[Rfam]
RNA: Makes More Granules Regulator RNA (mmgR)
RNA sequence: CAUCGAUGCCCUUCCUGGGCGUUUCCUCCCUGUAAACUUGGCCGCGCUGUUAAGCGCGGCCUUUUUUUUCGUGAUC
Numbered sequence: 001c002a003u004c005g006a007u008g009c010c011c012u013u014c015c016u017g018g019g020c021g022u023u024u025c026c027u028c029c030c031u032g033u034a035a036a037c038u039u040g041g042c043c044g045c046g047c048u049g050u051u052a053a054g055c056g057c058g059g060c061c062u063u064u065u066u067u068u069u070c071g072u073g074a075u076c
Stems, first nucleotide, its partner, number of pairs: 008020004040061009